[Rfam]
RNA sequence: UUGCCUCAGUGAACAUUCAACGCUGUCGGUGAGUUUGAGCUAAACAGAAAAAAACCAUCGACCGUUGAUUGUACCCUGCGGUCGA
Numbered sequence: 001u002u003g004c005c006u007c008a009g010u011g012a013a014c015a016u017u018c019a020a021c022g023c024u025g026u027c028g029g030u031g032a033g034u035u036u037g038a039g040c041u042a043a044a045c046a047g048a049a050a051a052a053a054a055c056c057a058u059c060g061a062c063c064g065u066u067g068a069u070u071g072u073a074c075c076c077u078g079c080g081g082u083c084g085a
Base pairs, nucleotide, nucleotide: 001085002084003083004081005080007078008077014071015070017068018067019066020065021064022063025062026061027060028059029058030057031056033055034054035053036052